[Rfam]
The record is a 252-nucleotide RNA sequence from Salmonella enterica, which matches "Erse small RNA" in Rfam. The base pairs follow the family's consensus structure, which was predicted with RNAfold. On this family, see Chen et al., FEBS Lett 2012: "Esre: a novel essential non-coding RNA in Escherichia coli". The organism belongs to Salmonella enterica subsp. enterica serovar Schwarzengrund, within Bacteria.
RNA sequence: CCUGCGGAGCUGUUGGCGCCAUACACGGGUGAUAUCGCGGCGGAAAGUAUCGGUAAGGUCGUGCGUGGCGGGGCUAAAUUCCUGCGCCACGGGUUUCAACGCCAGCAGCGUUAUGCCGCUGAAGCGAUCACUGAAGAGUGGCGUAUGGCGCCUGGCCCGCUGGAAGUCGCAUGGUUUGCCGAAGAAACCGCGGCUGUUGAGCGCGCCGUAGAUGCUCUGACCACACGGCUGGAAAAACUGGAGGCCAAAUGA
Numbered sequence: 001c002c003u004g005c006g007g008a009g010c011u012g013u014u015g016g017c018g019c020c021a022u023a024c025a026c027g028g029g030u031g032a033u034a035u036c037g038c039g040g041c042g043g044a045a046a047g048u049a050u051c052g053g054u055a056a057g058g059u060c061g062u063g064c065g066u067g068g069c070g071g072g073g074c075u076a077a078a079u080u081c082c083u084g085c086g087c088c089a090c091g092g093g094u095u096u097c098a099a100c101g102c103c104a105g106c107a108g109c110g111u112u113a114u115g116c117c118g119c120u121g122a123a124g125c126g127a128u129c130a131c132u133g134a135a136g137a138g139u140g141g142c143g144u145a146u147g148g149c150g151c152c153u154g155g156c157c158c159g160c161u162g163g164a165a166g167u168c169g170c171a172u173g174g175u176u177u178g179c180c181g182a183a184g185a186a187a188c189c190g191c192g193g194c195u196g197u198u199g200a201g202c203g204c205g206c207c208g209u210a211g212a213u214g215c216u217c218u219g220a221c222c223a224c225a226c227g228g229c230u231g232g233a234a235a236a237a238c239u240g241g242a243g244g245c246c247a248a249a250u251g252a
Stems, first nucleotide, its partner, number of pairs: 001244003005240001006082004011077001012054005019047001022044001029038003063074002066071001084215003088211001090208003095203001099144006115128001117126003148179003152174003157169001159167003186198003190194001216232002219229001221228002